Rfam assigns this 63-nucleotide RNA sequence from Rhodamnia argentea to the family "Plastid-psbA-2 3UTR RNA". The family is grouped with related families in Rfam's "Plastid-psbA 3UTR RNA clan". The match comes from Rfam's covariance-model search (64 bits). It is annotated as a cis-regulatory element. Rfam's curators write: Plastid psbA-2 is a non-coding RNA (ncRNA) present in plastids. Lineage of the source: Eukaryota > Streptophytina > malvids > Myrteae > Rhodamnia.

[Rfam]
RNA sequence: AUAAAGGAACAAUAACCAAUUUCUUAUUCUAUCAAGAGUGUUGGUUAUUGCUCCUUUAUUUUG
Numbered sequence: 001a002u003a004a005a006g007g008a009a010c011a012a013u014a015a016c017c018a019a020u021u022u023c024u025u026a027u028u029c030u031a032u033c034a035a036g037a038g039u040g041u042u043g044g045u046u047a048u049u050g051c052u053c054c055u056u057u058a059u060u061u062u063g
Base pairs, nucleotide, nucleotide: 001059002058003057004056005055006054007053008052010050011049012048013047014046015045016044017043018042019041022037023036024035025034